[Rfam]
RNA sequence: ACGCCAGCCGCAGCAUCCCAUCUGGUCCUACUCCCCAAGAGGCCAAUCCCCAGGGAGCUCAUGUUGCGGGGCUCUGAGCAAGCCUGACCGCUGGCGCUUAUUUGAAAUCAGACCCCGGCCCCGCUUUGCGGUGCCGGGGCUUUUUUU
Numbered sequence: 001a002c003g004c005c006a007g008c009c010g011c012a013g014c015a016u017c018c019c020a021u022c023u024g025g026u027c028c029u030a031c032u033c034c035c036c037a038a039g040a041g042g043c044c045a046a047u048c049c050c051c052a053g054g055g056a057g058c059u060c061a062u063g064u065u066g067c068g069g070g071g072c073u074c075u076g077a078g079c080a081a082g083c084c085u086g087a088c089c090g091c092u093g094g095c096g097c098u099u100a101u102u103u104g105a106a107a108u109c110a111g112a113c114c115c116c117g118g119c120c121c122c123g124c125u126u127u128g129c130g131g132u133g134c135c136g137g138g139g140c141u142u143u144u145u146u147u
Base pairs, nucleotide, nucleotide: 002096003095004094005093006092007091008090010067011066012065013064014063015062016061023045024044025043026042027041028039029038047056048055049054069085070084071083072082073081113139114138115137116136117135118134119133121131122130123129
Notes: The family of this 147-nucleotide RNA from Stenotrophomonas panacihumi is "Proteobacterial sRNA sX11". For this family Rfam cites "Genome-wide transcriptome analysis of the plant pathogen Xanthomonas identifies sRNAs with putative virulence functions" (Schmidtke et al., Nucleic Acids Res, 2011). The organism belongs to Stenotrophomonas, within Bacteria.